Nucleotides: 113
Stems, first nucleotide, its partner, number of pairs: 001113008013043005021032003026084004044076004049072002053066001055064001080105001085102006
Number, partner (000 for none) and nucleotide at each position: 001113a002112u003111u004110u005109u006108a007107u008106a009000a010000c011000g012000a013043a014042g015041g016040g017039u018000g019000g020000a021032g022031a023030g024000a025000c026084c027083a028082g029081g030023c031022u032021c033000u034000a035000c036000g037000a038000a039017a040016c041015c042014c043013u044076g045075g046074c047073a048000a049072c050071c051000a052000c053066u054000c055064u056000c057000c058000c059000g060000c061000u062000g063000g064055g065000a066053g067000a068000a069000a070000a071050g072049g073047u074046g075045c076044c077000a078000a079000a080105u081029c082028c083027u084026g085102u086101c087100c088099c089098g090097a091000a092000a093000u094000u095000u096000u097090u098089c099088g100087g101086g102085a103000a104000a105080a106008u107007a108006u109005a110004a111003a112002a113001u
Notes: Shown here is a 113-nucleotide RNA from Lewinella sp. W8, a member of the family "SAM riboswitch aptamer (S box leader)". The SAM riboswitch is found upstream of a number of genes which code for proteins involved in methionine or cysteine biosynthesis in Gram-positive bacteria.